Lysine riboswitch aptamer: a 174-nucleotide RNA sequence from Subdoligranulum variabile.
The base pairs follow the family's consensus structure, which is taken from published work.
Its family is annotated with lysine biosynthetic process in the Gene Ontology.
RNA sequence: AAAAAACACAGAGGCGCGAAGUUCAUCAGUAGCUUGUUCUGCAAGCCCCGCCAGGGCAUGGAACGGUGAAAGGGACCUUCGCCGAAGGCGGUACGCGGCACGUACCGACCUGGGCUCGUUUCCGAACAGGAGCGGGACUGUCACAUCUGAAGGAUGUGUUGCGCUGUGUGUAUG
Dot-bracket structure: .....((((((....((((((.((.........(((((((...................))))))).......)).))))))...((((((((((.....))))))).)))((.((((((((......)))))))).))..((((((.....)))))).....)))))).....